[Rfam]
RNA sequence: CUCUGGUCCUCCCGCAACACUAGUUUGUUAACCUGGUCAGGUCCGGAAGGAAGCAGCCACAGCAGAUGACGUGUGUGCCGGGAUGUGGCUGGGGCCU
Numbered sequence: 001c002u003c004u005g006g007u008c009c010u011c012c013c014g015c016a017a018c019a020c021u022a023g024u025u026u027g028u029u030a031a032c033c034u035g036g037u038c039a040g041g042u043c044c045g046g047a048a049g050g051a052a053g054c055a056g057c058c059a060c061a062g063c064a065g066a067u068g069a070c071g072u073g074u075g076u077g078c079c080g081g082g083a084u085g086u087g088g089c090u091g092g093g094g095c096c097u
Base pairs, nucleotide, nucleotide: 004091005090006089007088008087010083011082012081013080014079015075017074018073019072020071023067024066025065026064027063028062029061034059035058036057037056042051043050044049

The record is a 97-nucleotide RNA sequence from Vibrio viridaestus, which matches "Bacterial small signal recognition particle RNA" in Rfam. The signal recognition particle (SRP) is a universally conserved ribonucleoprotein involved in the co-translational targeting of proteins to membranes. NCBI's taxonomy places the organism under Bacteria, Pseudomonadota, Gammaproteobacteria, Vibrionaceae, Vibrio. The family's RNA type in Rfam is non-coding RNA gene. Gene Ontology terms of the family: signal recognition particle, plasma membrane targeting and SRP-dependent cotranslational protein targeting to membrane, signal sequence recognition. For this family Rfam cites "SRPDB: Signal Recognition Particle Database" (Rosenblad et al., Nucleic Acids Res, 2003). The base pairs follow the family's consensus structure, which is taken from published work.